The record is a 110-nucleotide RNA sequence from Pontibacillus marinus, which matches "PyrR binding site" in Rfam. Rfam links the family to the GO terms pyrimidine nucleobase transport and pyrimidine nucleobase biosynthetic process. The match comes from Rfam's covariance-model search (62 bits). Pairs were carried over by alignment from the consensus structure, which is taken from published work. Rfam 15.1 lists 1,498 matches to the family in 930 species. NCBI's taxonomy places the organism under Bacteria, Bacillati, Bacillota, Caryophanales, Pontibacillus marinus.
RNA sequence: AAGACCUUUAAUUUAGUUCAGAGAAACUGAAAAGGUCGCUUAGAUAGGAAACGUGUAUCUUCGAGGAUACGUGUACCUCUUUGCGAGCUUUUCGCAAAGAGGUUUUUUUA
Numbered sequence: 001a002a003g004a005c006c007u008u009u010a011a012u013u014u015a016g017u018u019c020a021g022a023g024a025a026a027c028u029g030a031a032a033a034g035g036u037c038g039c040u041u042a043g044a045u046a047g048g049a050a051a052c053g054u055g056u057a058u059c060u061u062c063g064a065g066g067a068u069a070c071g072u073g074u075a076c077c078u079c080u081u082u083g084c085g086a087g088c089u090u091u092u093c094g095c096a097a098a099g100a101g102g103u104u105u106u107u108u109u110a
Stems, first nucleotide, its partner, number of pairs: 003037007013030006055070006073105001075103012